SAM riboswitch aptamer (S box leader): a 102-nucleotide RNA from Candidatus Izimoplasma sp. ZiA1. Its family is annotated with regulation of gene expression in the Gene Ontology. Lineage of the source: Bacteria > Mycoplasmatota > Mollicutes > Candidatus Izemoplasmatales > Candidatus Izemoplasma.
RNA sequence: AUUUCAUUCAGAGUCACAGAGGUUAGAUAACCGGUGAAGUGACAGCAACCUAUUAAAUUAGGUGCUUUUAUCUAGGGGCAUAUUUGUGCCUAACAAUGAGAG
Numbered sequence: 001a002u003u004u005c006a007u008u009c010a011g012a013g014u015c016a017c018a019g020a021g022g023u024u025a026g027a028u029a030a031c032c033g034g035u036g037a038a039g040u041g042a043c044a045g046c047a048a049c050c051u052a053u054u055a056a057a058u059u060a061g062g063u064g065c066u067u068u069u070a071u072c073u074a075g076g077g078g079c080a081u082a083u084u085u086g087u088g089c090c091u092a093a094c095a096a097u098g099a100g101a102g
Stems, first nucleotide, its partner, number of pairs: 002101007013043005021032003027073001029071001044066004049062002052058002075091003